[Rfam]
RNA sequence: ACACCUGGAAGUUGCAAGACCAUGGUAUGUUGAGAUAAAAGCCACACGGUUUUUAUCCCUCCACACCAUAAGAUCCACAUCUCCCGAGGUG
Numbered sequence: 001a002c003a004c005c006u007g008g009a010a011g012u013u014g015c016a017a018g019a020c021c022a023u024g025g026u027a028u029g030u031u032g033a034g035a036u037a038a039a040a041g042c043c044a045c046a047c048g049g050u051u052u053u054u055a056u057c058c059c060u061c062c063a064c065a066c067c068a069u070a071a072g073a074u075c076c077a078c079a080u081c082u083c084c085c086g087a088g089g090u091g
Stems, first nucleotide, its partner, number of pairs: 003090004010082002013079002018075002021072001023068004029064002032061003035056009